[Rfam]
Source information
The family of this 108-nucleotide RNA from Arachis hypogaea is "Plant small nucleolar RNA R71". On this family, see Brown et al., Trends Plant Sci 2003: "Plant snoRNAs: functional evolution and new modes of gene expression". The family's consensus secondary structure was predicted with PFOLD. It is annotated as a C/D-box small nucleolar RNA.

RNA sequence: AAGCAUGUCAGAAGGACACUUUUUGGUCAGUUGCUUAUAUCUCUCCCAAGCUUCAUAGAGGGAUUCACCUUCUUUCUGUUUGAAGGUUUGAACAUCCAUUCUAAGCUU
Numbered sequence: 001a002a003g004c005a006u007g008u009c010a011g012a013a014g015g016a017c018a019c020u021u022u023u024u025g026g027u028c029a030g031u032u033g034c035u036u037a038u039a040u041c042u043c044u045c046c047c048a049a050g051c052u053u054c055a056u057a058g059a060g061g062g063a064u065u066c067a068c069c070u071u072c073u074u075u076c077u078g079u080u081u082g083a084a085g086g087u088u089u090g091a092a093c094a095u096c097c098a099u100u101c102u103a104a105g106c107u108u
Base pairs, nucleotide, nucleotide: 001108003106004105006103007102058075059074061072